Notes:
Shown here is a 101-nucleotide RNA sequence from Providencia stuartii, a member of the family "Tryptophan operon leader". The family's consensus secondary structure is taken from published work. Rfam classes the family as a cis-regulatory leader. The literature on the family includes a 1982 paper in Annu Rev Genet by Kolter and Yanofsky, "Attenuation in amino acid biosynthetic operons". Lineage of the source: Bacteria > Pseudomonadota > Gammaproteobacteria > Enterobacterales > Providencia. Rfam describes the family as follows. At least 6 amino acid operons are known to be regulated by attenuation.
RNA sequence: AAUCGUUGGUGGCGUAACUUCCCAAAUUGGGCGGAAGACGCACACGCAUAGAUUCGAUAUGCCUCAGCGCCAAACCCGCCCUAGUCUGCGGGUUUUUUUAU
Numbered sequence: 001a002a003u004c005g006u007u008g009g010u011g012g013c014g015u016a017a018c019u020u021c022c023c024a025a026a027u028u029g030g031g032c033g034g035a036a037g038a039c040g041c042a043c044a045c046g047c048a049u050a051g052a053u054u055c056g057a058u059a060u061g062c063c064u065c066a067g068c069g070c071c072a073a074a075c076c077c078g079c080c081c082u083a084g085u086c087u088g089c090g091g092g093u094u095u096u097u098u099u100a101u
Stems, first nucleotide, its partner, number of pairs: 009043003015036001018033001020031003073094007